[Rfam]
Rfam assigns this 103-nucleotide RNA from Acipenser ruthenus to the family "mir-454 microRNA precursor family". A reference for the family is Chen et al. (2005), "The developmental miRNA profiles of zebrafish as determined by small RNA cloning", Genes Dev. Pairs were carried over by alignment from the consensus structure, which was predicted with RNAalifold.
RNA sequence: ACAGCAUUACCUUAAAGACGAGCCCCUAUCAGUAUUGCUUCUGCUUGUUGUGCAUAUGUGGAGUAGUGCAAUAUUGCUUAUAGGGUCUUGUCGUUAAAGGGUU
Numbered sequence: 001a002c003a004g005c006a007u008u009a010c011c012u013u014a015a016a017g018a019c020g021a022g023c024c025c026c027u028a029u030c031a032g033u034a035u036u037g038c039u040u041c042u043g044c045u046u047g048u049u050g051u052g053c054a055u056a057u058g059u060g061g062a063g064u065a066g067u068g069c070a071a072u073a074u075u076g077c078u079u080a081u082a083g084g085g086u087c088u089u090g091u092c093g094u095u096a097a098a099g100g101g102u103u
Stems, first nucleotide, its partner, number of pairs: 020089003024085006030076009041066005